c-di-GMP-II-GAG riboswitch aptamer: an 86-nucleotide RNA.

RNA sequence: CCCUCGGUGGGGUGCGACGACGCGCGGUCCGUGUCCAGGUCGCCGAGGACCGCGUCGAGCCACUGGCGAGACCGACCCGCUCAGGC
Numbered sequence: 001c002c003c004u005c006g007g008u009g010g011g012g013u014g015c016g017a018c019g020a021c022g023c024g025c026g027g028u029c030c031g032u033g034u035c036c037a038g039g040u041c042g043c044c045g046a047g048g049a050c051c052g053c054g055u056c057g058a059g060c061c062a063c064u065g066g067c068g069a070g071a072c073c074g075a076c077c078c079g080c081u082c083a084g085g086c
Stems, first nucleotide, its partner, number of pairs: 002085003006081006014060002022055008038073002040069005

Rfam links the family to the GO terms regulation of gene expression and cyclic-di-GMP binding. The family's consensus secondary structure is taken from published work.